A member of the RNA family "NiCo (Nickel/Cobalt) riboswitch aptamer" from Anaeromonas frigoriresistens, 82 nucleotides long. On this family, see Furukawa et al., Mol Cell 2015: "Bacterial riboswitches cooperatively bind Ni(2+) or Co(2+) ions and control expression of heavy metal transporters". Pairs were carried over by alignment from the consensus structure, which is taken from published work. It scores 47 bits against the family's covariance model. Gene Ontology terms of the family: cobalt ion binding and metal ion homeostasis.
RNA sequence: UUAAUACGACAUAGAUCAGGCGAAUGUUAUAUCAUUGCAGCCGGGCUUAACAGGCAACAGGUAUAAAACCUGUGGGACUAUU
Numbered sequence: 001u002u003a004a005u006a007c008g009a010c011a012u013a014g015a016u017c018a019g020g021c022g023a024a025u026g027u028u029a030u031a032u033c034a035u036u037g038c039a040g041c042c043g044g045g046c047u048u049a050a051c052a053g054g055c056a057a058c059a060g061g062u063a064u065a066a067a068a069c070c071u072g073u074g075g076g077a078c079u080a081u082u
Stems, first nucleotide, its partner, number of pairs: 011081004017076001019042003023036004045055004057073006